[Rfam]
RNA sequence: GGCUUUCUGAAUCCGUGCUUAGAUUUCGUCAGACACCGACUCACCAGGGGUGAUGAGACUUCCGAGAUAAGUUAAGCG
Numbered sequence: 001g002g003c004u005u006u007c008u009g010a011a012u013c014c015g016u017g018c019u020u021a022g023a024u025u026u027c028g029u030c031a032g033a034c035a036c037c038g039a040c041u042c043a044c045c046a047g048g049g050g051u052g053a054u055g056a057g058a059c060u061u062c063c064g065a066g067a068u069a070a071g072u073u074a075a076g077c078g
Base pairs, nucleotide, nucleotide: 002077003076004075005074008071011068012067013066016064017063021060022059024058025057026056027055028054029053030052
The record is a 78-nucleotide RNA from Schistosoma japonicum, which matches "mir-3492 microRNA precursor family" in Rfam.
Pairs were carried over by alignment from the consensus structure, which was predicted with RNAalifold.
It scores 58 bits against the family's covariance model.